This 182-nucleotide RNA from Arabidopsis thaliana belongs to the Rfam family "MIR5635 microRNA precursor family". Rfam's curators put it in the seed alignment. The base pairs follow the family's consensus structure, which was predicted with RNAalifold.

RNA sequence: AUCGUUGACCCGGUCAAAGCGACUCAUUGUUAACACUUCUUAACAGCUCUCCUAACAGCGUAACUAACAACUGUUUUCGUCCUUAAACCAACGAUAACGGCUGUUAGGCCAUGUUUUGUAAGGGCUGUUAGGAGCGCUGUUAAGGAGUGUUAACGGUGAGUCGAUUUGGCCUGGUCAACGAU
Number, nucleotide and partner (000 for none) at each position: 001a000002u181003c180004g179005u178006u177007g176008a175009c174010c173011c000012g171013g170014u169015c168016a167017a166018a165019g000020c000021g000022a161023c160024u159025c158026a157027u156028u155029g154030u153031u152032a151033a150034c149035a148036c147037u146038u145039c144040u143041u142042a141043a140044c139045a138046g137047c136048u000049c134050u133051c132052c131053u130054a129055a128056c127057a126058g125059c124060g000061u000062a000063a000064c107065u106066a105067a104068c103069a102070a000071c100072u099073g098074u097075u096076u000077u094078c093079g092080u091081c000082c000083u000084u000085a000086a000087a000088c000089c000090a000091a080092c079093g078094a077095u000096a075097a074098c073099g072100g071101c000102u069103g068104u067105u066106a065107g064108g000109c000110c000111a000112u000113g000114u000115u000116u000117u000118g000119u000120a000121a000122g000123g000124g059125c058126u057127g056128u055129u054130a053131g052132g051133a050134g049135c000136g047137c046138u045139g044140u043141u042142a041143a040144g039145g038146a037147g036148u035149g034150u033151u032152a031153a030154c029155g028156g027157u026158g025159a024160g023161u022162c000163g000164a000165u018166u017167u016168g015169g014170c013171c012172u000173g010174g009175u008176c007177a006178a005179c004180g003181a002182u000